[Rfam]
Overview:
A member of the RNA family "Small nucleolar RNA SNORA25" from Molossus molossus, 124 nucleotides long. The match comes from Rfam's covariance-model search (87 bits).
RNA sequence: UGUUCAAAGAGGGCUUAUGGGGCUGUGAAGCCAGGAACUCUUAAUUCUAUAACCAAAGAUUGAGGUUCUCCAUAGGGUGUCAUAGUUCCUCAACAGUGCUAAGUAUUUUUGAGGAGAUAUAAUA
Numbered sequence: 001u002g003u004u005c006a007a008a009g010a011g012g013g014c015u016u017a018u019g020g021g022g023c024u025g026u027g028a029a030g031c032c033a034g035g036a037a038c039u040c041u042u043a044a045u046u047c048u049a050u051a052a053c054c055a056a057a058g059a060u061u062g063a064g065g066u067u068c069u070c071c072a073u074a075g076g077g078u079g080u081c082a083u084a085g086u087u088c089c090u091c092a093a094c095a096g097u098g099c100u101a102a103g104u105a106u107u108u109u110u111g112a113g114g115a116g117a118u119a120u121a122a123u124a
Stems, first nucleotide, its partner, number of pairs: 001051002009042005015036002018034001021032002067117005074110004083101003087098001089096002
Record summary: Rfam links the family to the GO terms RNA processing and nucleolus.